[Rfam]
Shown here is a 61-nucleotide RNA from Ralstonia pickettii, a member of the family "Betaproteobacteria toxic small RNA". The literature on the family includes a 2017 paper in Sci Rep by Sass et al., "Identification of small RNAs abundant in Burkholderia cenocepacia biofilms reveal putative regulators with a potential role in carbon and iron metabolism". About the family: Overexpression in amino aid rich medium attenuates growth, suggesting role in repressing amino acid intake and metabolism. The base pairs follow the family's consensus structure, which was predicted with WAR. It is one of the family's seed sequences. NCBI's taxonomy places the organism under Bacteria, Pseudomonadota, Burkholderiales, Burkholderiaceae, Ralstonia pickettii.
RNA sequence: UGUCUCCUCCACCCUCCUUGGUGGAUUGUGGCCCGAGCACCUGGUGCUCGGGCUUUUUUCU
Numbered sequence: 001u002g003u004c005u006c007c008u009c010c011a012c013c014c015u016c017c018u019u020g021g022u023g024g025a026u027u028g029u030g031g032c033c034c035g036a037g038c039a040c041c042u043g044g045u046g047c048u049c050g051g052g053c054u055u056u057u058u059u060c061u
Stems, first nucleotide, its partner, number of pairs: 008025005030054008